RNA sequence: AAUGGUGAGAGCGUUGAGGGGAGUUCCAGACGGAGAUGCGAGGACCCCUCGGGGUCUGACCCACA
Dot-bracket structure: ...(((.(((.(.((((((((...(((...((......)).))))))))))).)))).)))....
Numbered sequence: 001a002a003u004g005g006u007g008a009g010a011g012c013g014u015u016g017a018g019g020g021g022a023g024u025u026c027c028a029g030a031c032g033g034a035g036a037u038g039c040g041a042g043g044a045c046c047c048c049u050c051g052g053g054g055u056c057u058g059a060c061c062c063a064c065a
Stems, first nucleotide, its partner, number of pairs: 004061003008057003012054001014052008025044003031040002
Shown here is a 65-nucleotide RNA sequence from Homo sapiens, a member of the family "mir-611 microRNA precursor family". The sequence is in the family's curated seed alignment. On this family, see Brameier, BMC Res Notes 2010: "Genome-wide comparative analysis of microRNAs in three non-human primates". Gene Ontology terms of the family: RISC complex and miRNA-mediated post-transcriptional gene silencing. The organism belongs to Homo, within Eukaryota.